[Rfam]
RNA sequence: CAUUGAUUACCAGCACGGGCGUCGGAGAAAUCCUACGCCCGUGCAUGCAUGUUAAGGGCAGGAUCGAUAAC
Dot-bracket structure: ............(((((((((..(((....)))..)))))))))...........................
A member of the RNA family "tpke11" from Erwinia sorbitola, 71 nucleotides long. The family's RNA type in Rfam is small RNA. For this family Rfam cites "Computational identification of noncoding RNAs in E. coli by comparative genomics" (Rivas et al., Curr Biol, 2001). Gene Ontology term of the family: response to temperature stimulus. Lineage of the source: Bacteria > Pseudomonadota > Gammaproteobacteria > Enterobacterales > Erwinia. It scores 67 bits against the family's covariance model. In Yersinia located in ICR upstream dnaJ (chaperone)gene. Has temperature responsive RNA structure.